SAM riboswitch aptamer (S box leader): an 89-nucleotide RNA sequence from Ornithinicoccus hortensis. From the family's description: The SAM riboswitch is found upstream of a number of genes which code for proteins involved in methionine or cysteine biosynthesis in Gram-positive bacteria. It scores 56 bits against the family's covariance model. Its family is annotated with regulation of gene expression in the Gene Ontology.
[Rfam]
RNA sequence: CACCCAUCCAGAGCGGCCGAGAGACCUGGCUCAUCGACGCCGCAGCAACCACCCACCCGGGCAGGUGCUCACGCCAGGACCGAUGGAGG
Numbered sequence: 001c002a003c004c005c006a007u008c009c010a011g012a013g014c015g016g017c018c019g020a021g022a023g024a025c026c027u028g029g030c031u032c033a034u035c036g037a038c039g040c041c042g043c044a045g046c047a048a049c050c051a052c053c054c055a056c057c058c059g060g061g062c063a064g065g066u067g068c069u070c071a072c073g074c075c076a077g078g079a080c081c082g083a084u085g086g087a088g089g
Stems, first nucleotide, its partner, number of pairs: 001089001004086005013043005021032003026077004044069004049065002052061003073081001